[Rfam]
Nucleotides: 089
Base pairs, nucleotide, nucleotide: 001089002088003087004086
Number, partner (000 for none) and nucleotide at each position: 001089g002088a003087c004086a005000c006000a007000u008000g009000a010000u011000g012000u013000u014000a015000u016000a017000c018000u019000a020000u021000a022000u023000u024000u025000g026000c027000u028000a029000c030000u031000u032000c033000g034000g035000a036000c037000g038000g039000g040000c041000u042000c043000u044000c045000g046000g047000a048000g049000c050000c051000c052000g053000a054000a055000u056000g057000a058000g059000a060000c061000a062000u063000a064000u065000c066000u067000u068000a069000a070000u071000c072000a073000c074000c075000a076000a077000g078000a079000u080000c081000u082000c083000u084000g085000a086004u087003g088002u089001c